[Rfam]
RNA sequence: AUAACCAAAAGGUAACCUGCUUAAAAGCAGGGGCGCAAAGCUAUAAGGUCUAAGAUGCUUUAGAACGAUGAUAGUCUGGCUUGCGAA
Dot-bracket structure: ...........((..((((((....))))))...))..((((....((((.....(.(....).)....)))..)..))))......
A member of the RNA family "c-di-GMP-I riboswitch aptamer" from Paenibacillus endophyticus, 87 nucleotides long.
The family's consensus secondary structure is taken from published work.
A search with the family's covariance model found it, with a score of 46 bits.
Lineage of the source: Bacteria > Bacillati > Caryophanales > Paenibacillaceae > Paenibacillus.